[Rfam]
RNA: c-di-AMP riboswitch aptamer (ydaO/yuaA leader)
Organism: Sulfobacillus harzensis
Nucleotides: 139
Base pairs, nucleotide, nucleotide: 012123013122014121019035020034021033022032023031024030038118039117040116041115042114047054048053055104056103057102063079065077066076082098083097084096085095
Number, partner (000 for none) and nucleotide at each position: 001000g002000u003000c004000u005000a006000a007000c008000u009000c010000a011000c012123g013122c014121c015000g016000a017000a018000u019035u020034c021033g022032c023031g024030c025000a026000u027000c028000g029000u030024g031023c032022g033021c034020g035019a036000u037000a038118c039117g040116g041115a042114g043000g044000a045000u046000c047054u048053u049000u050000c051000c052000c053048a054047g055104g056103g057102g058000u059000u060000a061000a062000g063079g064000a065077u066076g067000a068000g069000a070000c071000u072000u073000u074000c075000u076066c077065a078000a079063c080000c081000g082098g083097g084096c085095a086000g087000u088000u089000u090000c091000c092000u093000g094000c095085u096084g097083c098082c099000u100000c101000a102057c103056c104055c105000g106000c107000c108000a109000a110000c111000u112000a113000a114042c115041u116040c117039c118038g119000g120000a121014g122013g123012c124000a125000a126000u127000a128000a129000c130000a131000g132000g133000a134000a135000a136000g137000g138000g139000c